[Rfam]
RNA sequence: AUAAUUCUUCAGGGCAGGGUGAAAUUCCCGACCGGCGGUUAUAGUCCGCGAGCGUAAGCUGAUCUGGUGUAAUUCCAGAACCGACAGUAAAGUCUGGAUGGUAGAAGAUAUAC
Numbered sequence: 001a002u003a004a005u006u007c008u009u010c011a012g013g014g015c016a017g018g019g020u021g022a023a024a025u026u027c028c029c030g031a032c033c034g035g036c037g038g039u040u041a042u043a044g045u046c047c048g049c050g051a052g053c054g055u056a057a058g059c060u061g062a063u064c065u066g067g068u069g070u071a072a073u074u075c076c077a078g079a080a081c082c083g084a085c086a087g088u089a090a091a092g093u094c095u096g097g098a099u100g101g102u103a104g105a106a107g108a109u110a111u112a113c
Stems, first nucleotide, its partner, number of pairs: 003111001006108005017029003031093002033083002035049004044081002052059002063079005085096003
FMN riboswitch aptamer (RFN element): a 113-nucleotide sequence from a Mycoplasmatota bacterium. From the family's description: The RFN element is a highly conserved domain that is found frequently in the 5'-untranslated regions of prokaryotic mRNAs that encode for flavin mononucleotide (FMN) biosynthesis and transport proteins. Gene Ontology term of the family: FMN binding. The family's consensus secondary structure is taken from published work.